RNA sequence: UUGGGAGAUUCCGAAAACCCUUAAGAGAGUAGGAU
Numbered sequence: 001u002u003g004g005g006a007g008a009u010u011c012c013g014a015a016a017a018c019c020c021u022u023a024a025g026a027g028a029g030u031a032g033g034a035u
Stems, first nucleotide, its partner, number of pairs: 003020003010034003

DUF805b RNA: a 35-nucleotide RNA. Rfam classes the family as a cis-regulatory element. Pairs were carried over by alignment from the consensus structure, which is taken from published work.